[Rfam]
Shown here is a 66-nucleotide sequence from Halalkalibacter nanhaiisediminis, a member of the family "Bacillaceae-1 RNA".
RNA sequence: UUCAAAAGGUGACCGACUAGUUCGCAACGUCCUGUUGCAACGUCGGCAUUAGCACAUCCAUGUGCG
Numbered sequence: 001u002u003c004a005a006a007a008g009g010u011g012a013c014c015g016a017c018u019a020g021u022u023c024g025c026a027a028c029g030u031c032c033u034g035u036u037g038c039a040a041c042g043u044c045g046g047c048a049u050u051a052g053c054a055c056a057u058c059c060a061u062g063u064g065c066g
Base pairs, nucleotide, nucleotide: 013046014045015044016043017042024038025037026036027035028034052065053064054063055062